[Rfam]
RNA sequence: AUCCUUUCCCGUGCACAGCCGAAGCAUCGGCAACUGCCAGCAGCCCCGGUCGUUCAGGCUGCGCCGCGGUCUCCCCGCGCCGACCUCCUUGCCCGCAUCGCAUCGUGCCGCGGACACGCGCCUGCUCAGGGCGUAGGUGC
Numbered sequence: 001a002u003c004c005u006u007u008c009c010c011g012u013g014c015a016c017a018g019c020c021g022a023a024g025c026a027u028c029g030g031c032a033a034c035u036g037c038c039a040g041c042a043g044c045c046c047c048g049g050u051c052g053u054u055c056a057g058g059c060u061g062c063g064c065c066g067c068g069g070u071c072u073c074c075c076c077g078c079g080c081c082g083a084c085c086u087c088c089u090u091g092c093c094c095g096c097a098u099c100g101c102a103u104c105g106u107g108c109c110g111c112g113g114a115c116a117c118g119c120g121c122c123u124g125c126u127c128a129g130g131g132c133g134u135a136g137g138u139g140c
Stems, first nucleotide, its partner, number of pairs: 011035001013034001018031005040062006048085004063081001065079005110140003118134006
About this RNA:
Shown here is a 140-nucleotide RNA from Acidovorax sp. MR-S7, a member of the family "radC RNA". The source organism's lineage runs through Bacteria, Pseudomonadota, Betaproteobacteria, Comamonadaceae and Acidovorax. By type it is a cis-regulatory element. A search with the family's covariance model found it, with a score of 61 bits.